[Rfam]
RNA: Purine riboswitch aptamer
RNA sequence: UAUAAUACAAGAGUCACAUAUCGUAUAUCCUCUCGAAUUGGCGAGAGAGUCUCUACCCCAUGGCCGUAACUAUGGGACUACGGUGUCUAGAUUUUUUAGA
Numbered sequence: 001u002a003u004a005a006u007a008c009a010a011g012a013g014u015c016a017c018a019u020a021u022c023g024u025a026u027a028u029c030c031u032c033u034c035g036a037a038u039u040g041g042c043g044a045g046a047g048a049g050u051c052u053c054u055a056c057c058c059c060a061u062g063g064c065c066g067u068a069a070c071u072a073u074g075g076g077a078c079u080a081c082g083g084u085g086u087c088u089a090g091a092u093u094u095u096u097u098a099g100a
Stems, first nucleotide, its partner, number of pairs: 018086008030047006057076007
Dot-bracket structure: .................((((((((....((((((......)))))).........(((((((......)))))))..))))))))..............